Shown here is a 93-nucleotide sequence from Clostridium thermopalmarium, a member of the family "Selenocysteine transfer RNA". The base pairs follow the family's consensus structure, which is taken from published work. The organism belongs to Clostridium thermopalmarium, within Bacteria.
[Rfam]
RNA sequence: GGGAACGGAUGGGUCCUGGUGGAUCCCGUGGACUUCAAAUCCAUAGUCGGGUGGUAAGACCGGCCGAGGUGGGUUCAAUUCCUACACGUUCCC
Numbered sequence: 001g002g003g004a005a006c007g008g009a010u011g012g013g014u015c016c017u018g019g020u021g022g023a024u025c026c027c028g029u030g031g032a033c034u035u036c037a038a039a040u041c042c043a044u045a046g047u048c049g050g051g052u053g054g055u056a057a058g059a060c061c062g063g064c065c066g067a068g069g070u071g072g073g074u075u076c077a078a079u080u081c082c083u084a085c086a087c088g089u090u091c092c093c
Stems, first nucleotide, its partner, number of pairs: 001093007008085001011026006028044005047067004070084004